[Rfam]
RNA sequence: UUAAAUGUUUUCUAGGGUUCCGCAAAGACUCAUCUUUGGUCUGGUCCGAGAGAAAACUCACAGCAUCAAGCUGUGUCACGGAGGGAUAAAAGCCCGGGAGAA
Numbered sequence: 001u002u003a004a005a006u007g008u009u010u011u012c013u014a015g016g017g018u019u020c021c022g023c024a025a026a027g028a029c030u031c032a033u034c035u036u037u038g039g040u041c042u043g044g045u046c047c048g049a050g051a052g053a054a055a056a057c058u059c060a061c062a063g064c065a066u067c068a069a070g071c072u073g074u075g076u077c078a079c080g081g082a083g084g085g086a087u088a089a090a091a092g093c094c095c096g097g098g099a100g101a102a
Stems, first nucleotide, its partner, number of pairs: 007057006015047002020044002022041001023038006059075006077097001079100001083095003
This 102-nucleotide RNA from Bacillus yapensis belongs to the Rfam family "Guanidine-I riboswitch aptamer". Rfam links the family to the GO term regulation of gene expression. For this family Rfam cites "New RNA motifs suggest an expanded scope for riboswitches in bacterial genetic control" (Barrick et al., Proc Natl Acad Sci U S A, 2004). The source organism's lineage runs through Bacteria, Bacillati, Bacillota, Bacilli and Bacillus.